The family of this 111-nucleotide sequence is "SAM-I/IV (S-adenosyl methionine) riboswitch aptamer".
The family is grouped with related families in Rfam's "SAM clan".
[Rfam]
RNA sequence: UUUAUACAUCAGGAAGGUCUAUAUGACCUGCCAACCGACUCUGGGUGAGCACGGUGGUUUGAAUCCUUAAACGGUAGAUGUGCCUUGAAAAAGGAAACCUAGAAGCCACCU
Numbered sequence: 001u002u003u004a005u006a007c008a009u010c011a012g013g014a015a016g017g018u019c020u021a022u023a024u025g026a027c028c029u030g031c032c033a034a035c036c037g038a039c040u041c042u043g044g045g046u047g048a049g050c051a052c053g054g055u056g057g058u059u060u061g062a063a064u065c066c067u068u069a070a071a072c073g074g075u076a077g078a079u080g081u082g083c084c085u086u087g088a089a090a091a092a093g094g095a096a097a098c099c100u101a102g103a104a105g106c107c108a109c110c111u
Stems, first nucleotide, its partner, number of pairs: 006081005015029005030058003035054003039049002043106001046103001083094004
Dot-bracket structure: .....(((((....(((((.....)))))(((..(((.((..[..[.))..))).)))..................))))).((((....))))........]..].....
Pairs were carried over by alignment from the consensus structure, which is taken from published work.